[Rfam]
RNA sequence: UCCGAUGUAGUGUAGUGGUUAUCACAGUCCGCUCUCACCGGGCAGACCGGGGUUCGAUUCCCCGUUUCGGAG
Numbered sequence: 001u002c003c004g005a006u007g008u009a010g011u012g013u014a015g016u017g018g019u020u021a022u023c024a025c026a027g028u029c030c031g032c033u034c035u036c037a038c039c040g041g042g043c044a045g046a047c048c049g050g051g052g053u054u055c056g057a058u059u060c061c062c063c064g065u066u067u068c069g070g071a072g
Base pairs, nucleotide, nucleotide: 001071002070003069004068005067007065010025011024012023027043028042029041030040031039048064049063050062051061052060
Dot-bracket structure: (((((.(..(((..........))).(((((.......)))))....(((((.......)))))).))))).

Rfam assigns this 72-nucleotide RNA sequence from Nadsonia fulvescens to the family "tRNA". Lineage of the source: Eukaryota > Opisthokonta > saccharomyceta > Nadsonia > Nadsonia fulvescens var. elongata. Its family is annotated with triplet codon-amino acid adaptor activity in the Gene Ontology.